[Rfam]
RNA sequence: UCUACAACAACAUCCUGGUGCUGCCUGAGUAACUAAAAAAACUCCAGCAUCAGUGAUUUUGUUGCUGU
Numbered sequence: 001u002c003u004a005c006a007a008c009a010a011c012a013u014c015c016u017g018g019u020g021c022u023g024c025c026u027g028a029g030u031a032a033c034u035a036a037a038a039a040a041a042c043u044c045c046a047g048c049a050u051c052a053g054u055g056a057u058u059u060u061g062u063u064g065c066u067g068u
Stems, first nucleotide, its partner, number of pairs: 006063005012057003015053009
Rfam assigns this 68-nucleotide RNA from Neogobius melanostomus to the family "mir-338 microRNA precursor family".
The source organism's lineage runs through Eukaryota, Opisthokonta, Eurypterygia, Neogobiini and Neogobius.
Its family is annotated with miRNA-mediated post-transcriptional gene silencing and RISC complex in the Gene Ontology.
On this family, see Chen et al., Genes Dev 2005: "The developmental miRNA profiles of zebrafish as determined by small RNA cloning".
Rfam 15.1 lists 1,231 matches to the family in 632 species.